[Rfam]
Nucleotides: 331
Base pairs, nucleotide, nucleotide: 001018002017004015005014006013081270082269083268084267085266087264088263092212093211094210095209096208097207102203103202104201213250214249218245219244220243221242226237254311256310257309258308259307260306272297273296274295275294276293277292278291279290280289316329317328318327319326320325
Number, partner (000 for none) and nucleotide at each position: 001018u002017c003000a004015u005014g006013g007000g008000c009000a010000u011000g012000a013006u014005u015004a016000g017002g018001g019000c020000c021000a022000a023000g024000a025000g026000a027000a028000a029000u030000u031000a032000g033000g034000u035000c036000a037000a038000a039000a040000a041000a042000g043000g044000u045000g046000g047000a048000g049000u050000g051000a052000a053000c054000c055000u056000u057000c058000a059000u060000c061000u062000a063000g064000u065000c066000u067000u068000u069000a070000u071000a072000u073000a074000a075000a076000g077000g078000c079000a080000a081270a082269a083268u084267c085266u086000u087264c088263a089000a090000a091000u092212u093211g094210c095209g096208g097207g098000a099000a100000a101000c102203u103202c104201u105000u106000a107000a108000a109000g110000a111000c112000a113000a114000a115000u116000c117000u118000a119000c120000c121000a122000a123000g124000u125000u126000a127000a128000u129000a130000c131000a132000g133000u134000a135000a136000u137000g138000u139000a140000a141000u142000u143000a144000a145000u146000g147000g148000a149000a150000c151000a152000g153000g154000u155000a156000a157000u158000g159000a160000c161000u162000c163000g164000u165000u166000g167000u168000a169000a170000g171000g172000u173000a174000a175000a176000a177000a178000c179000g180000a181000u182000u183000u184000g185000u186000a187000u188000a189000a190000a191000g192000a193000a194000a195000u196000g197000c198000a199000a200000u201104a202103g203102a204000u205000a206000a207097u208096c209095c210094g211093c212092a213250g214249c215000c216000a217000a218245g219244u220243a221242c222000c223000u224000g225000a226237a227000c228000a229000c230000u231000u232000a233000u234000a235000a236000u237226u238000a239000c240000a241000g242221g243220u244219a245218u246000g247000c248000a249214g250213u251000u252000c253000a254311u255000c256310g257309a258308c259307u260306a261000a262000a263088u264087g265000g266085a267084g268083g269082u270081u271000g272297g273296u274295a275294a276293a277292u278291a279290a280289u281000u282000a283000c284000a285000a286000u287000u288000a289280a290279u291278u292277a293276u294275u295274u296273g297272c298000u299000u300000a301000a302000g303000a304000u305000a306260u307259a308258g309257u310256c311254a312000g313000g314000c315000a316329u317328a318327a319326c320325u321000u322000a323000a324000a325320g326319g327318u328317u329316a330000u331000g